Nucleotides: 409
Base pairs, nucleotide, nucleotide: 001405002404003403004402005401006400007399010396012333013332014331015330016329017328018327020041021040023038024037025036026035027034028033046393047392048391050390051389052388053387054386055222056221057220058219062270063269064268065267067218068217069216070215071214072086073085074084075083076082087101088099089098090097091096102213103212107211108210109207110206111205123154124153125150126149127148130145131144133142162180163179164178165177166176167175182203183202184201186199187198188197189196190195226290227289228288229287235281236280237279238278239277240276261275262274263273264272265271297316298315299314300313301312302311303310304309
Number, partner (000 for none) and nucleotide at each position: 001405g002404a003403a004402g005401u006400u007399u008000g009000a010396c011000a012333g013332a014331c015330a016329a017328u018327c019000g020041c021040u022000g023038g024037c025036g026035g027034u028033g029000c030000u031000u032000g033028c034027a035026c036025c037024g038023c039000g040021a041020g042000a043000g044000g045000a046393a047392a048391g049000u050390c051389c052388g053387g054386g055222c056221u057220c058219c059000a060000u061000a062270g063269g064268g065267c066000a067218g068217g069216a070215u071214g072086c073085u074084g075083g076082a077000u078000a079000a080000c081000g082076u083075c084074c085073a086072g087101u088099c089098a090097g091096c092000g093000c094000g095000a096091g097090u098089u099088g100000a101087a102213g103212g104000a105000u106000a107211g108210u109207g110206c111205c112000a113000c114000a115000g116000a117000a118000a119000u120000g121000g122000a123154c124153c125150g126149c127148c128000g129000a130145u131144g132000g133142c134000c135000g136000c137000c138000u139000a140000g141000c142133g143000g144131c145130a146000c147000a148127g149126g150125c151000a152000a153124g154123g155000g156000u157000g158000g159000a160000a161000c162180c163179g164178u165177g166176g167175u168000g169000u170000a171000a172000g173000a174000g175167a176166c177165c178164a179163c180162g181000a182203g183202g184201g185000a186199c187198u188197a189196u190195g191000g192000u193000g194000a195190c196189a197188u198187a199186g200000c201184c202183c203182c204000u205111g206110g207109u208000a209000a210108a211107c212103c213102c214071c215070a216069u217068c218067u219058g220057g221056a222055g223000c224000a225000a226290g227289a228288c229287c230000u231000a232000a233000u234000g235281g236280g237279a238278c239277g240276c241000a242000c243000g244000c245000g246000g247000a248000u249000c250000u251000u252000g253000g254000a255000u256000c257000c258000g259000c260000a261275g262274c263273c264272u265271u266000a267065g268064c269063c270062c271265g272264a273263g274262g275261c276240g277239c278238g279237u280236c281235u282000g283000g284000g285000u286000u287229g288228g289227u290226c291000g292000c293000u294000g295000g296000a297316g298315c299314c300313g301312u302311u303310c304309a305000g306000c307000a308000a309304u310303g311302g312301a313300c314299g315298g316297c317000c318000u319000a320000g321000a322000u323000a324000g325000a326000u327018g328017a329016u330015u331014g332013u333012c334000g335000c336000u337000u338000c339000a340000a341000c342000g343000g344000u345000g346000g347000g348000a349000g350000g351000g352000c353000g354000a355000a356000c357000a358000g359000c360000c361000c362000g363000u364000u365000c366000u367000g368000a369000c370000c371000a372000c373000u374000g375000g376000a377000a378000g379000u380000a381000c382000a383000g384000a385000a386054c387053c388052c389051g390050g391048c392047u393046u394000a395000c396010g397000g398000a399007a400006a401005a402004c403003u404002u405001u406000u407000u408000g409000a